[Rfam]
RNA sequence: CGUUUUUGCUUCAACAGUGAUUGAACGGAACUCC
Numbered sequence: 001c002g003u004u005u006u007u008g009c010u011u012c013a014a015c016a017g018u019g020a021u022u023g024a025a026c027g028g029a030a031c032u033c034c
Base pairs, nucleotide, nucleotide: 002033003030004029005028006027008026010025011024012023013022014021015019
Overview:
Rfam assigns this 34-nucleotide RNA sequence from Salvelinus namaycush to the family "Iron response element I". A reference for the family is Huang et al. (1999), "An atypical iron-responsive element (IRE) within crayfish ferritin mRNA and an iron regulatory protein 1 (IRP1)-like protein from crayfish hepatopancreas", Insect Biochem Mol Biol. Pairs were carried over by alignment from the consensus structure, which is taken from published work. Taxonomically the source falls in Salvelinus (Eukaryota, Opisthokonta, Osteoglossocephalai, Clupeocephala). Rfam links the family to the GO term response to iron ion.